Shown here is a 58-nucleotide RNA sequence from Loktanella fryxellensis, a member of the family "terC RNA". NCBI's taxonomy places the organism under Bacteria, Pseudomonadota, Alphaproteobacteria, Rhodobacterales, Loktanella. The family's consensus secondary structure is taken from published work.
RNA sequence: AUUGCGGCCCGGGCCCCUCUGACGAUGGAAUAAACCAUCGUGAUGUCGGAUCGCAUCG
Numbered sequence: 001a002u003u004g005c006g007g008c009c010c011g012g013g014c015c016c017c018u019c020u021g022a023c024g025a026u027g028g029a030a031u032a033a034a035c036c037a038u039c040g041u042g043a044u045g046u047c048g049g050a051u052c053g054c055a056u057c058g
Base pairs, nucleotide, nucleotide: 006052007051009049010048011047012046022041023040024039025038026037027036028035